[Rfam]
RNA: U2 spliceosomal RNA
RNA sequence: AUACCUUCUCGGCCUUUUGGCUAAGAUCAAGUGUAGUAUCUGUUCUUAUCAGUGUGAAAACUGGUAUCUUCCCUACUGGGAAGCUAUUUUCACAUUAAUUUCUUCAGGGUCGCUCAGCAGGAGGGUGUUUACAUCAUCCGCUAAGCAAUUUGUUGUCGAAGCAUCGCACCACCGCUUUGUUCAGCAAGCCCUAU
Numbered sequence: 001a002u003a004c005c006u007u008c009u010c011g012g013c014c015u016u017u018u019g020g021c022u023a024a025g026a027u028c029a030a031g032u033g034u035a036g037u038a039u040c041u042g043u044u045c046u047u048a049u050c051a052g053u054g055u056g057a058a059a060a061c062u063g064g065u066a067u068c069u070u071c072c073c074u075a076c077u078g079g080g081a082a083g084c085u086a087u088u089u090u091c092a093c094a095u096u097a098a099u100u101u102c103u104u105c106a107g108g109g110u111c112g113c114u115c116a117g118c119a120g121g122a123g124g125g126u127g128u129u130u131a132c133a134u135c136a137u138c139c140g141c142u143a144a145g146c147a148a149u150u151u152g153u154u155g156u157c158g159a160a161g162c163a164u165c166g167c168a169c170c171a172c173c174g175c176u177u178u179g180u181u182c183a184g185c186a187a188g189c190c191c192u193a194u
Base pairs, nucleotide, nucleotide: 007026008025009024011022012021013020014019047066048065049064050063051062052061068083069082070081071080072079073078112146113145114144116142117141118140124135125134126133127132150187151186152185153184154183155182157179158178159177160176161175162174